[Rfam]
RNA sequence: UCUGUAUCUAAAGGCAUUGUAGAUGUGGUUGCUACAUGUGUACAUGUGUGUCAGAAGGUGGCAGAAAGGAGAGUAUGUCUAUGCUCACUGUUCUGACCUAUGAACAUCUAAAUGAUAAGUAGCCUAACAUU
Numbered sequence: 001u002c003u004g005u006a007u008c009u010a011a012a013g014g015c016a017u018u019g020u021a022g023a024u025g026u027g028g029u030u031g032c033u034a035c036a037u038g039u040g041u042a043c044a045u046g047u048g049u050g051u052c053a054g055a056a057g058g059u060g061g062c063a064g065a066a067a068g069g070a071g072a073g074u075a076u077g078u079c080u081a082u083g084c085u086c087a088c089u090g091u092u093c094u095g096a097c098c099u100a101u102g103a104a105c106a107u108c109u110a111a112a113u114g115a116u117a118a119g120u121a122g123c124c125u126a127a128c129a130u131u
Stems, first nucleotide, its partner, number of pairs: 002064004007058003013052003019049003024044004028037002071128001074121003082114002085111001087109001089106005